[Rfam]
RNA sequence: GGUCUCAUAGCUCAACUGGAUAGAGCAGCUGCCUUCUAAGCAGCAGGUUGCUGGUUCGAGUCCAUUGGGAUCA
Dot-bracket structure: (((((((..((((.........)))).(((((.......))))).....(.(((.......))))))))))).
The family of this 73-nucleotide RNA from a Cyclobacteriaceae bacterium is "tRNA". Lineage of the source: Bacteria > Pseudomonadati > Bacteroidota > Cytophagales > Cyclobacteriaceae. It scores 51 bits against the family's covariance model. Rfam classes the family as a transfer RNA. The base pairs follow the family's consensus structure, which is taken from published work.